[Rfam]
This 94-nucleotide RNA sequence from Limnohabitans sp. Rim28 belongs to the Rfam family "Glycine riboswitch aptamer". The organism belongs to Limnohabitans, within Bacteria. The match comes from Rfam's covariance-model search (73 bits).
RNA sequence: AUACUCGCAUCGGGAGAGACUGUCUGUCACAGCAGACAGCGCCGAAGGAGCAACCACCCCGGAAACUCUCAGGCCAAAGGACCGAUGCAGGUCG
Numbered sequence: 001a002u003a004c005u006c007g008c009a010u011c012g013g014g015a016g017a018g019a020c021u022g023u024c025u026g027u028c029a030c031a032g033c034a035g036a037c038a039g040c041g042c043c044g045a046a047g048g049a050g051c052a053a054c055c056a057c058c059c060c061g062g063a064a065a066c067u068c069u070c071a072g073g074c075c076a077a078a079g080g081a082c083c084g085a086u087g088c089a090g091g092u093c094g
Stems, first nucleotide, its partner, number of pairs: 007088007020039006041074003044070002048068003054062002